[Rfam]
RNA sequence: ACUAACGGUAGAGGCGCGGGCUUCAUCAGUAGGAAAUCUGACAUGUUCGGCAUGGACGAUGGUUUCUGAAAGGGCUGACCGCCGAAGAAGAAACUUGCCGCAACGAGUUUUUUCUGGGCAUAUAGUUAAUAGCUGUAUGACUGUCAUCUGUAAGAUGGAGUGCUACUCAGUAA
Numbered sequence: 001a002c003u004a005a006c007g008g009u010a011g012a013g014g015c016g017c018g019g020g021c022u023u024c025a026u027c028a029g030u031a032g033g034a035a036a037u038c039u040g041a042c043a044u045g046u047u048c049g050g051c052a053u054g055g056a057c058g059a060u061g062g063u064u065u066c067u068g069a070a071a072g073g074g075c076u077g078a079c080c081g082c083c084g085a086a087g088a089a090g091a092a093a094c095u096u097g098c099c100g101c102a103a104c105g106a107g108u109u110u111u112u113u114c115u116g117g118g119c120a121u122a123u124a125g126u127u128a129a130u131a132g133c134u135g136u137a138u139g140a141c142u143g144u145c146a147u148c149u150g151u152a153a154g155a156u157g158g159a160g161u162g163c164u165a166c167u168c169a170g171u172a173a
Stems, first nucleotide, its partner, number of pairs: 007167005016082004021077001024074001032067007086115012116142002119139008144158005